[Rfam]
RNA sequence: GUCUGGUGUAGGCAGACUUAUUGAAAGAUAAGGAAGCAAAAUAAUGGUUCUGUCGUUUAUAUUAGCUAUUGAACUAUGAUCUCCAGGUUGCCUAU
Numbered sequence: 001g002u003c004u005g006g007u008g009u010a011g012g013c014a015g016a017c018u019u020a021u022u023g024a025a026a027g028a029u030a031a032g033g034a035a036g037c038a039a040a041a042u043a044a045u046g047g048u049u050c051u052g053u054c055g056u057u058u059a060u061a062u063u064a065g066c067u068a069u070u071g072a073a074c075u076a077u078g079a080u081c082u083c084c085a086g087g088u089u090g091c092c093u094a095u
Stems, first nucleotide, its partner, number of pairs: 012037002017032006040089003045085003049079002055074004
The record is a 95-nucleotide sequence from Cytobacillus dafuensis, which matches "c-di-GMP-I riboswitch aptamer" in Rfam. Clan: c-di-GMP_I riboswitch clan. A search with the family's covariance model found it, with a score of 44 bits.